Rfam assigns this 169-nucleotide sequence from Mycetocola miduiensis to the family "Vibrio RNA AS7". Identified by direct cloning an parallel sequencing experiments with 5S/tRNA depletion. Confirmed by Northern blot. For this family Rfam cites "Experimental discovery of sRNAs in Vibrio cholerae by direct cloning, 5S/tRNA depletion and parallel sequencing" (Liu et al., Nucleic Acids Res, 2009). The family's consensus secondary structure was predicted with RNAfold.

RNA sequence: GGUGUCUGAAGCAGGAGGCUGUCGCGGUCCUCAAUGAUCCCGCCGACGUAGUAGGGCAAGCCGCAGUUGGCGAAGGAGACGUAGGGGCCCCGCUCGAAGACGACGAUUUCGGCAGCCUCAUCGAGGCGACGCAGGCGUGUCGCCGCGGACAUUCCGCCGGCGACGCCGC
Numbered sequence: 001g002g003u004g005u006c007u008g009a010a011g012c013a014g015g016a017g018g019c020u021g022u023c024g025c026g027g028u029c030c031u032c033a034a035u036g037a038u039c040c041c042g043c044c045g046a047c048g049u050a051g052u053a054g055g056g057c058a059a060g061c062c063g064c065a066g067u068u069g070g071c072g073a074a075g076g077a078g079a080c081g082u083a084g085g086g087g088c089c090c091c092g093c094u095c096g097a098a099g100a101c102g103a104c105g106a107u108u109u110c111g112g113c114a115g116c117c118u119c120a121u122c123g124a125g126g127c128g129a130c131g132c133a134g135g136c137g138u139g140u141c142g143c144c145g146c147g148g149a150c151a152u153u154c155c156g157c158c159g160g161c162g163a164c165g166c167c168g169c
Stems, first nucleotide, its partner, number of pairs: 001167006008161001011025002014022001016020001032056001035053002038050001040048001060071003075155003085146001086144003092140002095137002101131002104128002107125002110123003